[Rfam]
RNA sequence: UCGCCGCGUACGCCCAGCGGGCGUCGUCGUCGACGAGGGCCUCGUCGCCGAAGUGGUCGCCGUCCGCGAAGACGCCCAGCACGGUCGUGUCGCCGUACUUGCCCUCGCCCAUCUUGUUGAUCUUGCCGUGCGCGACCAGGAACACCUGGUCGACCGGGCCGCCCGCCUCGGUCAGCACGUCGCCCGCGGCGAACUCGCGCUGGGUGAAGCGGGCGGCCAGCGCGGCGAGCACGCCUUCGUCCUCGAAGCCGCGCAGCAGCGGGAGUUCGCGCAGCGUCGGCGGCACCACCUGGACGUUGUCGGCGGUCUGCGCGAAACUCUCCCGGCCGCGGCCGACGGCGUACGUCUGCCGGCGGUUGACCCGGUACGUGCCGCCCGCGACCUGCACCCACGGCAGCAUCCGCAGCAGCCAGCGCGAGCUGAUGCCCUGCAUCUGCGGUGCGGACUUGGUCGUCGUCGCAAGGUUCCGCGCCGCGGCCGUGCCGAGACUCUGCUG
Numbered sequence: 001u002c003g004c005c006g007c008g009u010a011c012g013c014c015c016a017g018c019g020g021g022c023g024u025c026g027u028c029g030u031c032g033a034c035g036a037g038g039g040c041c042u043c044g045u046c047g048c049c050g051a052a053g054u055g056g057u058c059g060c061c062g063u064c065c066g067c068g069a070a071g072a073c074g075c076c077c078a079g080c081a082c083g084g085u086c087g088u089g090u091c092g093c094c095g096u097a098c099u100u101g102c103c104c105u106c107g108c109c110c111a112u113c114u115u116g117u118u119g120a121u122c123u124u125g126c127c128g129u130g131c132g133c134g135a136c137c138a139g140g141a142a143c144a145c146c147u148g149g150u151c152g153a154c155c156g157g158g159c160c161g162c163c164c165g166c167c168u169c170g171g172u173c174a175g176c177a178c179g180u181c182g183c184c185c186g187c188g189g190c191g192a193a194c195u196c197g198c199g200c201u202g203g204g205u206g207a208a209g210c211g212g213g214c215g216g217c218c219a220g221c222g223c224g225g226c227g228a229g230c231a232c233g234c235c236u237u238c239g240u241c242c243u244c245g246a247a248g249c250c251g252c253g254c255a256g257c258a259g260c261g262g263g264a265g266u267u268c269g270c271g272c273a274g275c276g277u278c279g280g281c282g283g284c285a286c287c288a289c290c291u292g293g294a295c296g297u298u299g300u301c302g303g304c305g306g307u308c309u310g311c312g313c314g315a316a317a318c319u320c321u322c323c324c325g326g327c328c329g330c331g332g333c334c335g336a337c338g339g340c341g342u343a344c345g346u347c348u349g350c351c352g353g354c355g356g357u358u359g360a361c362c363c364g365g366u367a368c369g370u371g372c373c374g375c376c377c378g379c380g381a382c383c384u385g386c387a388c389c390c391a392c393g394g395c396a397g398c399a400u401c402c403g404c405a406g407c408a409g410c411c412a413g414c415g416c417g418a419g420c421u422g423a424u425g426c427c428c429u430g431c432a433u434c435u436g437c438g439g440u441g442c443g444g445a446c447u448u449g450g451u452c453g454u455c456g457u458c459g460c461a462a463g464g465u466u467c468c469g470c471g472c473c474g475c476g477g478c479c480g481u482g483c484c485g486a487g488a489c490u491c492u493g494c495u496g
Stems, first nucleotide, its partner, number of pairs: 006388001008386003014380001017327002020324002026319001027315002034312002037309005044304004049299003053232002057228007066108002074102001076101001078099002081096005116221004121216002126211001129208001130205002133202002139196001142195001149190001155186005161176001165172002233295001235293002239289002243285001244283001248281004256275002259270003328341003350378001352376005360370002390430002393427004398422002402417003406414001436475004441470005446464003450460002486495002
The record is a 496-nucleotide RNA from a Streptomycetaceae bacterium, which matches "Saccharopolyspora sRNA 350" in Rfam. The match comes from Rfam's covariance-model search (209 bits). It is annotated as an antisense RNA. Rfam links the family to the GO term regulation of secondary metabolite biosynthetic process.